[Rfam]
RNA sequence: UAUAUUGUUUGACGAUGAGAGAGAGCACGCUUAGCUUGUUGGCAUUCAUGCAAGAAAUUUCAUGACUGUGUACAUGCGUGCUCUCUCUCAUUGUCAUAUAAUC
Numbered sequence: 001u002a003u004a005u006u007g008u009u010u011g012a013c014g015a016u017g018a019g020a021g022a023g024a025g026c027a028c029g030c031u032u033a034g035c036u037u038g039u040u041g042g043c044a045u046u047c048a049u050g051c052a053a054g055a056a057a058u059u060u061c062a063u064g065a066c067u068g069u070g071u072a073c074a075u076g077c078g079u080g081c082u083c084u085c086u087c088u089c090a091u092u093g094u095c096a097u098a099u100a101a102u103c
Stems, first nucleotide, its partner, number of pairs: 010096005016090002020086002023083001025081006037074003
MIR535 microRNA precursor family: a 103-nucleotide RNA from Beta vulgaris. It scores 74 bits against the family's covariance model. Its family is annotated with RISC complex and miRNA-mediated post-transcriptional gene silencing in the Gene Ontology.